RNA sequence: CGUCUGCGCAUUAUUACUCACGGUACGAGUUUGAUGUGUCACAGCGCGUACCAAAAGUAAUAAUGUACAGCCA
Numbered sequence: 001c002g003u004c005u006g007c008g009c010a011u012u013a014u015u016a017c018u019c020a021c022g023g024u025a026c027g028a029g030u031u032u033g034a035u036g037u038g039u040c041a042c043a044g045c046g047c048g049u050a051c052c053a054a055a056a057g058u059a060a061u062a063a064u065g066u067a068c069a070g071c072c073a
Stems, first nucleotide, its partner, number of pairs: 009065010022052006029045001